Source information
Shown here is a 113-nucleotide RNA sequence, a member of the family "LOOT RNA". A search with the family's covariance model found it, with a score of 51 bits.
[Rfam]
RNA sequence: GACCUAACCCGCACGUCGGUAUGGUCACUAAAAUCCAUUAGGAAUAACAGCUCGUCGUCAGAGCACUAUUCCUAAUGGUCGGCCUUGGAAACUCGGUCGGUGGCUUCGGUCAC
Numbered sequence: 001g002a003c004c005u006a007a008c009c010c011g012c013a014c015g016u017c018g019g020u021a022u023g024g025u026c027a028c029u030a031a032a033a034u035c036c037a038u039u040a041g042g043a044a045u046a047a048c049a050g051c052u053c054g055u056c057g058u059c060a061g062a063g064c065a066c067u068a069u070u071c072c073u074a075a076u077g078g079u080c081g082g083c084c085u086u087g088g089a090a091a092c093u094c095g096g097u098c099g100g101u102g103g104c105u106u107c108g109g110u111c112a113c
Stems, first nucleotide, its partner, number of pairs: 001026004009019003035078011050064004080099005087092001100113005
The family's consensus secondary structure is taken from published work.